[Rfam]
RNA sequence: GAAAUAUCUCAGGAUUUGACCGUCCGGUGAGUUGCGCUUAUCACUUGCGUAAGGUAUUUCUCUCUUCAUUGUUCAUAUGGAGGGUUUGAAGGCUGAGUCUACCACAACUGUGGGGAUAAAUUGUAACUUUCAGCAAACAGUGAUG
Dot-bracket structure: (((((((((..((((......)))).......(((((.........)))))))))))))).(((((.............))))).......(((((.(((.(((......)))))).............)))))...........